The family of this 76-nucleotide RNA from Acanthisitta chloris is "Small nucleolar RNA SNORD19". The organism belongs to Acanthisitta, within Eukaryota. A search with the family's covariance model found it, with a score of 39 bits. The pairing is the family consensus, mapped onto this sequence. The family has 22 seed sequences and 1,431 matches in Rfam 15.1.
RNA sequence: GAAAAAUGAUGAUAUUUCAGUUGUGUCCUAUUUUUACAGUGAAGACCUCAGAUCCAACUCUGAUUUCACUCUAGUU
Numbered sequence: 001g002a003a004a005a006a007u008g009a010u011g012a013u014a015u016u017u018c019a020g021u022u023g024u025g026u027c028c029u030a031u032u033u034u035u036a037c038a039g040u041g042a043a044g045a046c047c048u049c050a051g052a053u054c055c056a057a058c059u060c061u062g063a064u065u066u067c068a069c070u071c072u073a074g075u076u
Stems, first nucleotide, its partner, number of pairs: 001067004